[Rfam]
RNA sequence: GGGCUGGCUUUAGCUCAGUGAUUCCUUCGAUGGUACUUACUUAACCAUCUGGUCUGGUGGCUUCCAUCAGUCCAGUGGUGUGAGAUCUGUGGGCACUCUCCAGCCCUUUA
Numbered sequence: 001g002g003g004c005u006g007g008c009u010u011u012a013g014c015u016c017a018g019u020g021a022u023u024c025c026u027u028c029g030a031u032g033g034u035a036c037u038u039a040c041u042u043a044a045c046c047a048u049c050u051g052g053u054c055u056g057g058u059g060g061c062u063u064c065c066a067u068c069a070g071u072c073c074a075g076u077g078g079u080g081u082g083a084g085a086u087c088u089g090u091g092g093g094c095a096c097u098c099u100c101c102a103g104c105c106c107u108u109u110a
Stems, first nucleotide, its partner, number of pairs: 002105006013094004018090003026084004

Vault RNA: a 110-nucleotide RNA from Cavia porcellus.
A search with the family's covariance model found it, with a score of 53 bits.
The family's consensus secondary structure is taken from published work.
The family has 73 seed sequences and 2,873 matches in Rfam 15.1.